[Rfam]
RNA sequence: UGUCAUAACUAUGCAUUAUUCUGGUUGCCCACGACAAGAUAUGCUGUGGGUAAUCAGGACAGUGCAUAUUCAUGACA
Numbered sequence: 001u002g003u004c005a006u007a008a009c010u011a012u013g014c015a016u017u018a019u020u021c022u023g024g025u026u027g028c029c030c031a032c033g034a035c036a037a038g039a040u041a042u043g044c045u046g047u048g049g050g051u052a053a054u055c056a057g058g059a060c061a062g063u064g065c066a067u068a069u070u071c072a073u074g075a076c077a
Stems, first nucleotide, its partner, number of pairs: 001077006008070001010068008019059015035043002